The family of this 117-nucleotide RNA from Methylosinus sp. 3S-1 is "ALIL pseudoknot". Its family is annotated with positive regulation of translational frameshifting in the Gene Ontology.
RNA sequence: GUCUUAUUUUGCGGCGGCGGAGCUCGACCGCCGCUCGAAACAAUGAUCGCCUUCAUCGACGCUCAUCGGGAAGCGCACGGGGUCGAGCCGAUCUGCAAGCUCUUGCCGAUCGCCCCU
Dot-bracket structure: ...............(((((.......)))))..............................................((((......((.((.((((....)))).)).)))))).
Numbered sequence: 001g002u003c004u005u006a007u008u009u010u011g012c013g014g015c016g017g018c019g020g021a022g023c024u025c026g027a028c029c030g031c032c033g034c035u036c037g038a039a040a041c042a043a044u045g046a047u048c049g050c051c052u053u054c055a056u057c058g059a060c061g062c063u064c065a066u067c068g069g070g071a072a073g074c075g076c077a078c079g080g081g082g083u084c085g086a087g088c089c090g091a092u093c094u095g096c097a098a099g100c101u102c103u104u105g106c107c108g109a110u111c112g113c114c115c116c117u
Stems, first nucleotide, its partner, number of pairs: 016032005079116004089112002092109002095106004